[Rfam]
RNA sequence: UUAAAGAAUUUGAAGACUUUAGCUUGUAUACUUAAAGAAUUUGAAGACUUUAGCUUGCAUAGUUAAAAAUUUUGAAGACUUCAACU
Dot-bracket structure: ((.(((..((((((...((((...((((...((((((..........))))))..))))....))))...))))))..))).))..
Numbered sequence: 001u002u003a004a005a006g007a008a009u010u011u012g013a014a015g016a017c018u019u020u021a022g023c024u025u026g027u028a029u030a031c032u033u034a035a036a037g038a039a040u041u042u043g044a045a046g047a048c049u050u051u052a053g054c055u056u057g058c059a060u061a062g063u064u065a066a067a068a069a070u071u072u073u074g075a076a077g078a079c080u081u082c083a084a085c086u
Stems, first nucleotide, its partner, number of pairs: 001084002004081003009076006018067004025059004032053006
Shown here is an 86-nucleotide sequence from Solanum tuberosum, a member of the family "MIR8024 microRNA precursor family".
A search with the family's covariance model found it, with a score of 78 bits.
Rfam links the family to the GO terms miRNA-mediated post-transcriptional gene silencing and RISC complex.